[Rfam]
RNA: SAM riboswitch aptamer (S box leader)
RNA sequence: CUCUUAUCCAGAGAGGUGGAGGGACGGGCCCUAUGAUACCUCGACAACCAGCCGCAAGGCAUGGUGUCAAUUCCCGCAGAAGCAGUAUUCUGGGAGAUGAGAG
Numbered sequence: 001c002u003c004u005u006a007u008c009c010a011g012a013g014a015g016g017u018g019g020a021g022g023g024a025c026g027g028g029c030c031c032u033a034u035g036a037u038a039c040c041u042c043g044a045c046a047a048c049c050a051g052c053c054g055c056a057a058g059g060c061a062u063g064g065u066g067u068c069a070a071u072u073c074c075c076g077c078a079g080a081a082g083c084a085g086u087a088u089u090c091u092g093g094g095a096g097a098u099g100a101g102a103g
Stems, first nucleotide, its partner, number of pairs: 001103008013042005021031003025076004043068004048064002051060003072095001077092005